[Rfam]
RNA sequence: CUGCCCAUCGGGGCAUGGAUACCUGCUUAAUUUUU
Dot-bracket structure: ..((((....)))).(((....)))..........
RNA: XIST RNA A repeat
Organism: Erinaceus europaeus